[Rfam]
RNA sequence: UCGAAGUUUCAUCUACAACUGGAUAAGAUUUUUGUUCUUGUGUAUACGAAUCGGUGGAAACAAAGUAGCAAGACCCCAUGUCUGCUUUAGCAAGACUGGGGUAUUGCUCCUUG
Numbered sequence: 001u002c003g004a005a006g007u008u009u010c011a012u013c014u015a016c017a018a019c020u021g022g023a024u025a026a027g028a029u030u031u032u033u034g035u036u037c038u039u040g041u042g043u044a045u046a047c048g049a050a051u052c053g054g055u056g057g058a059a060a061c062a063a064a065g066u067a068g069c070a071a072g073a074c075c076c077c078a079u080g081u082c083u084g085c086u087u088u089a090g091c092a093a094g095a096c097u098g099g100g101g102u103a104u105u106g107c108u109c110c111u112u113g
Base pairs, nucleotide, nucleotide: 008023009022010021011020063112064111065110067108068107069106070105071104073102074101076099077098078097080096081095082094083093

A member of the RNA family "Plastid-psbA-1 3UTR RNA" from Musa balbisiana, 113 nucleotides long. Plastid psbA-1 is a non-coding RNA (ncRNA) present in plastids. It was identified in inverted repeat sequences in the 3 prime untranslate region (3UTR) of photosystem II quinone-binding protein (psbA). NCBI's taxonomy places the organism under Eukaryota, Viridiplantae, Embryophyta, Magnoliopsida, Musa. Clan: Plastid-psbA 3UTR RNA clan.